[Rfam]
RNA sequence: AGAGCAGGGAUAGUGUGUAUCGGUGUUGUGCUAUGAUCAAUGCAUUCUUCCGAAAGUGUUCCCUAGCAAUAUCAAUUUGAGAGAAUGGGCAGUUGUGUUUCAUCUUUUAUGGUUGAAAAUCACAACAAUCAUUUUCACUACAUCU
Numbered sequence: 001a002g003a004g005c006a007g008g009g010a011u012a013g014u015g016u017g018u019a020u021c022g023g024u025g026u027u028g029u030g031c032u033a034u035g036a037u038c039a040a041u042g043c044a045u046u047c048u049u050c051c052g053a054a055a056g057u058g059u060u061c062c063c064u065a066g067c068a069a070u071a072u073c074a075a076u077u078u079g080a081g082a083g084a085a086u087g088g089g090c091a092g093u094u095g096u097g098u099u100u101c102a103u104c105u106u107u108u109a110u111g112g113u114u115g116a117a118a119a120u121c122a123c124a125a126c127a128a129u130c131a132u133u134u135u136c137a138c139u140a141c142a143u144c145u
Stems, first nucleotide, its partner, number of pairs: 004067002006064005015045006079138001081136008092126004
The record is a 145-nucleotide RNA sequence from Medicago truncatula, which matches "small nucleolar RNA snoR135" in Rfam. It scores 116 bits against the family's covariance model. Pairs were carried over by alignment from the consensus structure, which was predicted with RNAalifold. The family's RNA type in Rfam is H/ACA-box small nucleolar RNA.